[Rfam]
RNA: Betaproteobacteria toxic small RNA
Organism: Burkholderia cenocepacia
RNA sequence: UGUCUCCUCCAUGUCUCCAAACAUGGAUUCAGCCCGCUCCAGCAGCGGGCUUUUUUAU
Numbered sequence: 001u002g003u004c005u006c007c008u009c010c011a012u013g014u015c016u017c018c019a020a021a022c023a024u025g026g027a028u029u030c031a032g033c034c035c036g037c038u039c040c041a042g043c044a045g046c047g048g049g050c051u052u053u054u055u056u057a058u
Stems, first nucleotide, its partner, number of pairs: 008027007031051008